[Rfam]
RNA sequence: UAAGUUAAGGGCAAACUUAUCGAAAGAUAAGGACGCAAAACUAUAGGGCCUACCCCAUGGAAUGGUAGCCAGUUACCUAGA
Numbered sequence: 001u002a003a004g005u006u007a008a009g010g011g012c013a014a015a016c017u018u019a020u021c022g023a024a025a026g027a028u029a030a031g032g033a034c035g036c037a038a039a040a041c042u043a044u045a046g047g048g049c050c051u052a053c054c055c056c057a058u059g060g061a062a063u064g065g066u067a068g069c070c071a072g073u074u075a076c077c078u079a080g081a
Stems, first nucleotide, its partner, number of pairs: 001081001003078002011036002016031006034068001039074004046070002048066003
Source information:
The record is an 81-nucleotide RNA sequence from Paratissierella segnis, which matches "c-di-GMP-I-GGC riboswitch aptamer" in Rfam. The family is grouped with related families in Rfam's "c-di-GMP_I riboswitch clan". The literature on the family includes a 2017 paper in Proc Natl Acad Sci U S A by Weinberg et al., "Bioinformatic analysis of riboswitch structures uncovers variant classes with altered ligand specificity". Lineage of the source: Bacteria > Bacillota > Tissierellia > Tissierellales > Paratissierella. The family's consensus secondary structure is taken from published work.